[Rfam]
RNA sequence: ACACCCCUAUGGGGCAAGACUUGCUUCAGUAGGGCUAUGGUGCUUACUGGGUCUGCCCCUUGAGUUUGUCACU
Numbered sequence: 001a002c003a004c005c006c007c008u009a010u011g012g013g014g015c016a017a018g019a020c021u022u023g024c025u026u027c028a029g030u031a032g033g034g035c036u037a038u039g040g041u042g043c044u045u046a047c048u049g050g051g052u053c054u055g056c057c058c059c060u061u062g063a064g065u066u067u068g069u070c071a072c073u
Stems, first nucleotide, its partner, number of pairs: 001069003006064001008062002011059006018053003026050008034041002
mir-9229 microRNA precursor family: a 73-nucleotide RNA sequence from Myotis myotis. Gene Ontology terms of the family: RISC complex and miRNA-mediated post-transcriptional gene silencing. The organism belongs to Myotis, within Eukaryota.